RNA sequence: CCCGGUUGACAGUAACAUUUAUGCAAGCAGUUUUAGUAAAGCAGUUCCCCGUAUUAGCGUUAUCAGACAGAUACCUCUUCUCCGCGAAAUUCCUUCUAAGUGCCCCAUAAGUUGUGCCCAAGCCUAUUCGCUCGCCUAUGGCGGCAAUCAAAAAUAAUUGAAGGAAGUAUCUCUAUGUCUAAUAAAAUGACUGGUUUAGUAAAAUGGUUUAACGCUGACAAAGGUUUUGGUUUCAUCUCUCCUGCUGACGGCAGCAAAGACGUGUUCGUUCACUUCUCUGCCAUCCAGAGCAAUGAUUUCAAAACUUUAGAAGAAGGCCAGAAUGUUGAGUUCUCUAUCGAGAAUGGCGCUAAAGGCCCGGCAGCGGCGAAUGUUGUUGCUCUGUAAGAGUGAAUAACUGAACCUAAUACCCAACUCAUUGGAGUUACAGCUGUAACUUCAAGGACG
Numbered sequence: 001c002c003c004g005g006u007u008g009a010c011a012g013u014a015a016c017a018u019u020u021a022u023g024c025a026a027g028c029a030g031u032u033u034u035a036g037u038a039a040a041g042c043a044g045u046u047c048c049c050c051g052u053a054u055u056a057g058c059g060u061u062a063u064c065a066g067a068c069a070g071a072u073a074c075c076u077c078u079u080c081u082c083c084g085c086g087a088a089a090u091u092c093c094u095u096c097u098a099a100g101u102g103c104c105c106c107a108u109a110a111g112u113u114g115u116g117c118c119c120a121a122g123c124c125u126a127u128u129c130g131c132u133c134g135c136c137u138a139u140g141g142c143g144g145c146a147a148u149c150a151a152a153a154a155u156a157a158u159u160g161a162a163g164g165a166a167g168u169a170u171c172u173c174u175a176u177g178u179c180u181a182a183u184a185a186a187a188u189g190a191c192u193g194g195u196u197u198a199g200u201a202a203a204a205u206g207g208u209u210u211a212a213c214g215c216u217g218a219c220a221a222a223g224g225u226u227u228u229g230g231u232u233u234c235a236u237c238u239c240u241c242c243u244g245c246u247g248a249c250g251g252c253a254g255c256a257a258a259g260a261c262g263u264g265u266u267c268g269u270u271c272a273c274u275u276c277u278c279u280g281c282c283a284u285c286c287a288g289a290g291c292a293a294u295g296a297u298u299u300c301a302a303a304a305c306u307u308u309a310g311a312a313g314a315a316g317g318c319c320a321g322a323a324u325g326u327u328g329a330g331u332u333c334u335c336u337a338u339c340g341a342g343a344a345u346g347g348c349g350c351u352a353a354a355g356g357c358c359c360g361g362c363a364g365c366g367g368c369g370a371a372u373g374u375u376g377u378u379g380c381u382c383u384g385u386a387a388g389a390g391u392g393a394a395u396a397a398c399u400g401a402a403c404c405u406a407a408u409a410c411c412c413a414a415c416u417c418a419u420u421g422g423a424g425u426u427a428c429a430g431c432u433g434u435a436a437c438u439u440c441a442a443g444g445a446c447g
Stems, first nucleotide, its partner, number of pairs: 004020002007017002026243002029240002041233001044232001046230002048224002052222001059219004064214001066213001070210002073208003079177001081175001084173001092164005098158001100119001102117002130145003179194003183190001246340003250336002259267002270328001272326002275323001277322004281317002284311002287308003294303001345360003349357003361385004365379005388412001390410001395406002417444001419442010
Dot-bracket structure: ...((.((.......)).)).....((.((..........(..(.((((..(......((((.(.(...((.(((...(.(..(.......(((((.(.(.((............)).)..........(((..........)))............).)))))........).).).(((.(......).)))...........)))))..)).))))..)))....)).)).....)).))..(((.((.......((.....))..(.((.(.((((((.((.(((....(........)..))).))....)).))))).)).)......)).)))....(((.(((...))))))(((((((((.....)))))..))))..(.(....((........))...).)....(.((((((((((....)))))))))).)...
cspA thermoregulator: a 447-nucleotide sequence from Yersinia mollaretii. The family's RNA type in Rfam is RNA thermoregulator.